Notes
U11 spliceosomal RNA: a 135-nucleotide RNA sequence from Ochotona princeps.

[Rfam]
RNA sequence: AAAAAGGGCUUCUGUCGUGAGUGGCACACGCAGAGCGGCUCUGUUUGCUCUGCGUGCGGAAUCGACAUCAAGAGAUUUCGGAAGCAUAAUUUUUUGGUUUGUGGGCAGCUGGUGAUCGUUGGUCCUAGCGCCCUU
Numbered sequence: 001a002a003a004a005a006g007g008g009c010u011u012c013u014g015u016c017g018u019g020a021g022u023g024g025c026a027c028a029c030g031c032a033g034a035g036c037g038g039c040u041c042u043g044u045u046u047g048c049u050c051u052g053c054g055u056g057c058g059g060a061a062u063c064g065a066c067a068u069c070a071a072g073a074g075a076u077u078u079c080g081g082a083a084g085c086a087u088a089a090u091u092u093u094u095u096g097g098u099u100u101g102u103g104g105g106c107a108g109c110u111g112g113u114g115a116u117c118g119u120u121g122g123u124c125c126u127a128g129c130g131c132c133c134u135u
Stems, first nucleotide, its partner, number of pairs: 008085005013026005027056012057080007103133004108129005114124004
Its Rfam clan is "U1 clan". The sequence is in the family's curated seed alignment. NCBI's taxonomy places the organism under Eukaryota, Metazoa, Euteleostomi, Tetrapoda, Ochotona.